A member of the RNA family "Streptomyces RNA 5676" from Streptomyces triculaminicus, 130 nucleotides long. The base pairs follow the family's consensus structure. Rfam's curators write: Identified by deep sequencing of transcriptome at the end of exponential growth phase. A search with the family's covariance model found it, with a score of 96 bits. The organism belongs to Streptomyces, within Bacteria.
RNA sequence: GAAUGAACGCAACACCCCGCCCGCAGGGGACUGCGGGUGACGCCGCGCCGGUACUUCCCCAGUGCCGGACCGGCCGUGCCUUCGCGCACACCACCGGAGCCACUGGCUCCGGAAAUCCUCACCGAUCGGA
Numbered sequence: 001g002a003a004u005g006a007a008c009g010c011a012a013c014a015c016c017c018c019g020c021c022c023g024c025a026g027g028g029g030a031c032u033g034c035g036g037g038u039g040a041c042g043c044c045g046c047g048c049c050g051g052u053a054c055u056u057c058c059c060c061a062g063u064g065c066c067g068g069a070c071c072g073g074c075c076g077u078g079c080c081u082u083c084g085c086g087c088a089c090a091c092c093a094c095c096g097g098a099g100c101c102a103c104u105g106g107c108u109c110c111g112g113a114a115a116u117c118c119u120c121a122c123c124g125a126u127c128g129g130a
Stems, first nucleotide, its partner, number of pairs: 004121003009117001018039009042074004049067006076089004094112008122129002